[Rfam]
RNA: Gammaprotebacteria rimP leader
Organism: Shewanella sp. P1-14-1
RNA sequence: UAAGGAUAAAUAAUUAAAAGGUUCUAUAUUUAAGACCUCGUUAUUACGGGGUUUUUUGUUAUAUGGAGCUUAGUAACUCCGUGAUUUCACGGACUUUCUUGGGGCUAUUUGCCCUUUUUUU
Numbered sequence: 001u002a003a004g005g006a007u008a009a010a011u012a013a014u015u016a017a018a019a020g021g022u023u024c025u026a027u028a029u030u031u032a033a034g035a036c037c038u039c040g041u042u043a044u045u046a047c048g049g050g051g052u053u054u055u056u057u058g059u060u061a062u063a064u065g066g067a068g069c070u071u072a073g074u075a076a077c078u079c080c081g082u083g084a085u086u087u088c089a090c091g092g093a094c095u096u097u098c099u100u101g102g103g104g105c106u107a108u109u110u111g112c113c114c115u116u117u118u119u120u121u
Base pairs, nucleotide, nucleotide: 032055033054034053035052036051037050038049039048040047102114103113104112105111